Rfam assigns this 346-nucleotide RNA sequence from Hoskinsella hominis to the family "Bacterial RNase P class B". By type it is a ribozyme. The organism belongs to Hoskinsella, within Bacteria. The family is grouped with related families in Rfam's "RNaseP clan". The base pairs follow the family's consensus structure, which is taken from published work. For this family Rfam cites "Ribonuclease P: unity and diversity in a tRNA processing ribozyme" (Frank and Pace, Annu Rev Biochem, 1998).
RNA sequence: UCAUGACGACAGUCGCUGGCCAUUAUGGUUAGAGGAAAGUCCAUGCUCGCACGAUCUGCGAUGAUCGUAGUGUUUGUGCUGGAUGAAAAAAUAAAUCCAGGCAGUGUUAAACUGACGGCUGAAGGAUGCCUAAGGCUUCAUGCUAUGGCAUAACUUCUUUAAAAGUGCCACAGAGACGAGCUUUAAGAGAAAUCUUAAAGAUGGAACGGGUAAACCCCGCAAGCGAGAAACCCAAAUUUGGUAGGGGAAUCCUUCUUUGGUGAAAUGAAACCAUUGGGGAACAUGAGCAAUCAUGUAGAUAAAUGACUGUCACCUUGAAAAAGGCUACAGAACAUGGCUUAUGAAA
Numbered sequence: 001u002c003a004u005g006a007c008g009a010c011a012g013u014c015g016c017u018g019g020c021c022a023u024u025a026u027g028g029u030u031a032g033a034g035g036a037a038a039g040u041c042c043a044u045g046c047u048c049g050c051a052c053g054a055u056c057u058g059c060g061a062u063g064a065u066c067g068u069a070g071u072g073u074u075u076g077u078g079c080u081g082g083a084u085g086a087a088a089a090a091a092u093a094a095a096u097c098c099a100g101g102c103a104g105u106g107u108u109a110a111a112c113u114g115a116c117g118g119c120u121g122a123a124g125g126a127u128g129c130c131u132a133a134g135g136c137u138u139c140a141u142g143c144u145a146u147g148g149c150a151u152a153a154c155u156u157c158u159u160u161a162a163a164a165g166u167g168c169c170a171c172a173g174a175g176a177c178g179a180g181c182u183u184u185a186a187g188a189g190a191a192a193u194c195u196u197a198a199a200g201a202u203g204g205a206a207c208g209g210g211u212a213a214a215c216c217c218c219g220c221a222a223g224c225g226a227g228a229a230a231c232c233c234a235a236a237u238u239u240g241g242u243a244g245g246g247g248a249a250u251c252c253u254u255c256u257u258u259g260g261u262g263a264a265a266u267g268a269a270a271c272c273a274u275u276g277g278g279g280a281a282c283a284u285g286a287g288c289a290a291u292c293a294u295g296u297a298g299a300u301a302a303a304u305g306a307c308u309g310u311c312a313c314c315u316u317g318a319a320a321a322a323g324g325c326u327a328c329a330g331a332a333c334a335u336g337g338c339u340u341a342u343g344a345a346a
Base pairs, nucleotide, nucleotide: 004346008311009310010309011308012307013306014305016032017031018030019029020028021027037340038339039338041337042336043335044334045333046227047226048225049224050223051068052067053066054065055064056063074222075221076220077219078218079100080099081098082097083096084095101116102114103113104112105111117217118216121157122156127150128149129148130147134144135143136142165215166214167211168210169209181200182199183198184197185196186195187194188193231246232245233244250280251279252278253277254276281296282295283294284293285292286291313324314323315322316321